BsrC: an 88-nucleotide RNA from Paenibacillus oryzae.
It is annotated as a small RNA.
The 301 nucleotide sequence from Kouji Nakamura has been trimmed to a highly conserved ~85 nucleotide long core to form this family.
The match comes from Rfam's covariance-model search (78 bits).
Taxonomically the source falls in Paenibacillus (Bacteria, Bacillati, Bacilli, Paenibacillaceae).
The family has 29 seed sequences and 572 matches in Rfam 15.1.
RNA sequence: UCAUCCCAAAACAACGAAAGCCCUACCUCUCUUCCGUCCUUGCGGCUCCAAUGACCGCGCCAGCGUGAAUCAGAAUUUCCUUAACAAA
Dot-bracket structure: ..................................((..(((((((.(.....).)))))..))..)).....................